[Rfam]
RNA sequence: GAGGGUGAGCUUAGAUCCCUCAGCACGUUGUGUGUUAAUAGUGUUGCUUUUGGCCGAGCAGCAUGGUUAGUGAAUC
Number, nucleotide and partner (000 for none) at each position: 001g021002a020003g019004g018005g017006u000007g000008a000009g000010c000011u000012u000013a000014g000015a000016u000017c005018c004019c003020u002021c001022a000023g000024c000025a000026c000027g000028u000029u000030g000031u000032g000033u000034g000035u070036u069037a068038a067039u066040a000041g064042u063043g062044u061045u060046g059047c058048u057049u056050u000051u000052g000053g000054c000055c000056g049057a048058g047059c046060a045061g044062c043063a042064u041065g000066g039067u038068u037069a036070g035071u000072g000073a000074a000075u000076c000